RNA sequence: UACGCGAAUGCCGCCGGAACUACAUCACUCUUAAUGACCAGGUCGCGGGUUCGAAUCCCGUCCGCCCCAUUCGACGGGGCGGUAGCUCAGCGGUAGAGCAGGAUGUUCCGGCAACUUUCGUCGCGUAGCG
Numbered sequence: 001u002a003c004g005c006g007a008a009u010g011c012c013g014c015c016g017g018a019a020c021u022a023c024a025u026c027a028c029u030c031u032u033a034a035u036g037a038c039c040a041g042g043u044c045g046c047g048g049g050u051u052c053g054a055a056u057c058c059c060g061u062c063c064g065c066c067c068c069a070u071u072c073g074a075c076g077g078g079g080c081g082g083u084a085g086c087u088c089a090g091c092g093g094u095a096g097a098g099c100a101g102g103a104u105g106u107u108c109c110g111g112c113a114a115c116u117u118u119c120g121u122c123g124c125g126u127a128g129c130g
Base pairs, nucleotide, nucleotide: 002126003125004124005123006122007121013112014111015110016109017108018107019106039101045061046060047059048058049057052093062082063081064080065079066078067077085099086098087097088096
Overview: Rfam assigns this 130-nucleotide RNA from Thermomonas carbonis to the family "Y RNA-like". It is annotated as a small RNA. In Deinococcus radiodurans Rsr is tethered via Y RNA to the exoribonuclease PNPase and channels single-stranded RNA into the PNPase cavity. On this family, see Wang et al., Structure 2018: "Structural Basis for tRNA Mimicry by a Bacterial Y RNA". The base pairs follow the family's consensus structure, which is taken from published work. The organism belongs to Thermomonas, within Bacteria.